[Rfam]
A member of the RNA family "drz-agam-1 ribozyme" from Hermetia illucens, 78 nucleotides long. On this family, see Webb et al., Science 2009: "Widespread occurrence of self-cleaving ribozymes". Taxonomically the source falls in Hermetia (Eukaryota, Metazoa, Ecdysozoa, Stratiomyidae). It scores 38 bits against the family's covariance model. The family's consensus secondary structure is taken from published work.

RNA sequence: UACUACCAAACCCUAUCUCCACCUCCACGUGGUGACCGCUGGGAGCUCUCUGUAACGAAAAGCUGCAGACGAAGAAGG
Numbered sequence: 001u002a003c004u005a006c007c008a009a010a011c012c013c014u015a016u017c018u019c020c021a022c023c024u025c026c027a028c029g030u031g032g033u034g035a036c037c038g039c040u041g042g043g044a045g046c047u048c049u050c051u052g053u054a055a056c057g058a059a060a061a062g063c064u065g066c067a068g069a070c071g072a073a074g075a076a077g078g
Stems, first nucleotide, its partner, number of pairs: 012078003016074001018072002021033003044064004049059001051057002